[Rfam]
Description
Shown here is a 97-nucleotide sequence from Nicotiana attenuata, a member of the family "MIR6152 microRNA precursor family". The match comes from Rfam's covariance-model search (76 bits).

Nucleotides: 097
Base pairs, nucleotide, nucleotide: 003095004094009091010090011089012088013087014086015085017083018082020081021080023078024077026076027075028074029073030072031071034066035065037059038058039057
Number, partner (000 for none) and nucleotide at each position: 001000u002000a003095g004094a005000c006000a007000g008000a009091u010090u011089a012088u013087u014086g015085u016000a017083u018082u019000c020081g021080a022000c023078u024077g025000u026076a027075u028074u029073c030072a031071c032000g033000g034066c035065g036000c037059a038058a039057u040000u041000c042000a043000u044000g045000a046000u047000c048000u049000a050000u051000u052000c053000a054000g055000c056000u057039g058038u059037u060000u061000u062000a063000a064000a065035c066034g067000g068000a069000a070000a071031g072030u073029g074028a075027a076026u077024c078023a079000a080021u081020u082018a083017a084000c085015a086014u087013a088012a089011u090010a091009g092000a093000c094004u095003c096000c097000u
The source organism's lineage runs through Eukaryota, Streptophytina, Magnoliopsida, eudicotyledons and Nicotiana. The base pairs follow the family's consensus structure, which was predicted with RNAalifold.